[Rfam]
RNA: ALIL pseudoknot
Organism: Belnapia rosea
RNA sequence: GGCGUAUUUCGCGCAGGCGGAGCUCGACCGCCGGUCCAAGACGUGAUCGCGUUCAUCGACGAUCACUGGGGUGAGUACGGGGUCGAGCCGAUCUGCGAGGUGCUGCCGAUCGCCCCG
Number, nucleotide and partner (000 for none) at each position: 001g000002g000003c000004g000005u000006a000007u000008u000009u000010c000011g000012c000013g000014c000015a000016g032017g031018c030019g029020g028021a000022g000023c000024u000025c000026g000027a000028c020029c019030g018031c017032c016033g000034g000035u000036c000037c000038a000039a000040g000041a000042c000043g000044u000045g000046a000047u000048c000049g000050c000051g000052u000053u000054c000055a000056u000057c000058g000059a000060c000061g000062a000063u000064c000065a000066c000067u000068g000069g000070g000071g000072u000073g000074a000075g000076u000077a000078c117079g116080g115081g114082g113083u000084c000085g000086a000087g000088c000089c112090g111091a000092u109093c108094u000095g106096c105097g104098a000099g000100g000101u000102g000103c000104u097105g096106c095107c000108g093109a092110u000111c090112g089113c082114c081115c080116c079117g078